[Rfam]
RNA sequence: GUAAUGUUUCUUGCUCAAACGAGUAUUCCAACGUACAGCAGUGCCAUUCCUCUCUCUCCCUCUCUCUUUUUAUGUAUGGUGUUGCUGUUUAUGAGAUGCUCAUUUGGGCAAGCAAUGUUAC
Numbered sequence: 001g002u003a004a005u006g007u008u009u010c011u012u013g014c015u016c017a018a019a020c021g022a023g024u025a026u027u028c029c030a031a032c033g034u035a036c037a038g039c040a041g042u043g044c045c046a047u048u049c050c051u052c053u054c055u056c057u058c059c060c061u062c063u064c065u066c067u068u069u070u071u072a073u074g075u076a077u078g079g080u081g082u083u084g085c086u087g088u089u090u091a092u093g094a095g096a097u098g099c100u101c102a103u104u105u106g107g108g109c110a111a112g113c114a115a116u117g118u119u120a121c
Stems, first nucleotide, its partner, number of pairs: 004118005010112010021101007029093002
The record is a 121-nucleotide RNA from Actinidia chinensis, which matches "MIR828 microRNA precursor family" in Rfam. NCBI's taxonomy places the organism under Eukaryota, Tracheophyta, eudicotyledons, Pentapetalae, Actinidia chinensis. Rfam links the family to the GO terms RISC complex and miRNA-mediated post-transcriptional gene silencing. It scores 80 bits against the family's covariance model.